[Rfam]
RNA sequence: UCGAGCAGUGCACCGGGCAGGAGCGGGGGAACCAGGUAGUUCGCCGCGCCCUGCUCGGCCCGUUCACGGACGAGAUGGGUGUGGCUAGGGGUGAAGCCGCUACGUGCGGCCGGGCUACCUCACGGCCCGAACCCGACAGCUCACCUCGCAGGCGUCGCAGAGGGACGCC
Numbered sequence: 001u002c003g004a005g006c007a008g009u010g011c012a013c014c015g016g017g018c019a020g021g022a023g024c025g026g027g028g029g030a031a032c033c034a035g036g037u038a039g040u041u042c043g044c045c046g047c048g049c050c051c052u053g054c055u056c057g058g059c060c061c062g063u064u065c066a067c068g069g070a071c072g073a074g075a076u077g078g079g080u081g082u083g084g085c086u087a088g089g090g091g092u093g094a095a096g097c098c099g100c101u102a103c104g105u106g107c108g109g110c111c112g113g114g115c116u117a118c119c120u121c122a123c124g125g126c127c128c129g130a131a132c133c134c135g136a137c138a139g140c141u142c143a144c145c146u147c148g149c150a151g152g153c154g155u156c157g158c159a160g161a162g163g164g165a166c167g168c169c
Base pairs, nucleotide, nucleotide: 001021002020023149024148025147026146027145028144033088089134090133091132097109098108099107100106112128113127114126115125

Rfam assigns this 169-nucleotide RNA sequence from Kitasatospora aureofaciens to the family "c-di-AMP riboswitch aptamer (ydaO/yuaA leader)". Lineage of the source: Bacteria > Bacillati > Actinomycetota > Kitasatosporales > Kitasatospora. The base pairs follow the family's consensus structure.